Bacterial RNase P class A: a 447-nucleotide RNA sequence from Hyphomicrobium sulfonivorans.
By type it is a ribozyme.
A search with the family's covariance model found it, with a score of 289 bits.
Pairs were carried over by alignment from the consensus structure, which is taken from published work.
RNA sequence: UCAGCCGGCUGGACGGUCGCUGUUGGAUUCGCGGGCGGCAACGCCGGCGGCUUCGAUGGAGGAAAGUCCGGGCUCCAUGGAGACACGGUGGCGGCUAACGGCCGCCGGGGGCGACCCCAGGGAAAGUGCCACAGAAAGCAAACCGCCCGGAGAGGCUUCGGCCCGUGCCGGGUAAGGGUGAAAGGGUGCGGUAAGAGCGCACCGCGCCGACGGUGACGUCGGUGGCAGGGUAAACCCCACCGGGAGCAAGACCAAAUAGGGGUGGCCAGGCGCGCGGCAACGCGGCGCCAGAUCCGUCUUCAGAUCCGCUACCCGGGUUGGUUGCUAGAGGCGUUCAGCAAUGGACGUCCCAGACGAAUGGCCGUCGCGGAGGAUUUGGCCAGCAUUCGGCAUGCCGAUGUUGGGCUCGCCUCCAGACAGAACCCGGCUUACAGGCCGGCUGACAAA
Numbered sequence: 001u002c003a004g005c006c007g008g009c010u011g012g013a014c015g016g017u018c019g020c021u022g023u024u025g026g027a028u029u030c031g032c033g034g035g036c037g038g039c040a041a042c043g044c045c046g047g048c049g050g051c052u053u054c055g056a057u058g059g060a061g062g063a064a065a066g067u068c069c070g071g072g073c074u075c076c077a078u079g080g081a082g083a084c085a086c087g088g089u090g091g092c093g094g095c096u097a098a099c100g101g102c103c104g105c106c107g108g109g110g111g112c113g114a115c116c117c118c119a120g121g122g123a124a125a126g127u128g129c130c131a132c133a134g135a136a137a138g139c140a141a142a143c144c145g146c147c148c149g150g151a152g153a154g155g156c157u158u159c160g161g162c163c164c165g166u167g168c169c170g171g172g173u174a175a176g177g178g179u180g181a182a183a184g185g186g187u188g189c190g191g192u193a194a195g196a197g198c199g200c201a202c203c204g205c206g207c208c209g210a211c212g213g214u215g216a217c218g219u220c221g222g223u224g225g226c227a228g229g230g231u232a233a234a235c236c237c238c239a240c241c242g243g244g245a246g247c248a249a250g251a252c253c254a255a256a257u258a259g260g261g262g263u264g265g266c267c268a269g270g271c272g273c274g275c276g277g278c279a280a281c282g283c284g285g286c287g288c289c290a291g292a293u294c295c296g297u298c299u300u301c302a303g304a305u306c307c308g309c310u311a312c313c314c315g316g317g318u319u320g321g322u323u324g325c326u327a328g329a330g331g332c333g334u335u336c337a338g339c340a341a342u343g344g345a346c347g348u349c350c351c352a353g354a355c356g357a358a359u360g361g362c363c364g365u366c367g368c369g370g371a372g373g374a375u376u377u378g379g380c381c382a383g384c385a386u387u388c389g390g391c392a393u394g395c396c397g398a399u400g401u402u403g404g405g406c407u408c409g410c411c412u413c414c415a416g417a418c419a420g421a422a423c424c425c426g427g428c429u430u431a432c433a434g435g436c437c438g439g440c441u442g443a444c445a446a447a
Stems, first nucleotide, its partner, number of pairs: 001443010011432001012366007020059008064430003068427005073246004081300002086242005091105005106120001107118004121237002126235002128231003143177002145173006152166001185203006204226001205224008250323004260314006291306004330349008